[Rfam]
RNA sequence: ACUCAGGCACGAUCCUCGGCGAGCUCGCGCGGGGAACCGACCUGAAGUUCAAUCCUGAGGGA
Numbered sequence: 001a002c003u004c005a006g007g008c009a010c011g012a013u014c015c016u017c018g019g020c021g022a023g024c025u026c027g028c029g030c031g032g033g034g035a036a037c038c039g040a041c042c043u044g045a046a047g048u049u050c051a052a053u054c055c056u057g058a059g060g061g062a
Stems, first nucleotide, its partner, number of pairs: 001048003004044004013035006019028002
RNA: L31-Corynebacteriaceae ribosomal protein leader
Organism: Corynebacterium maris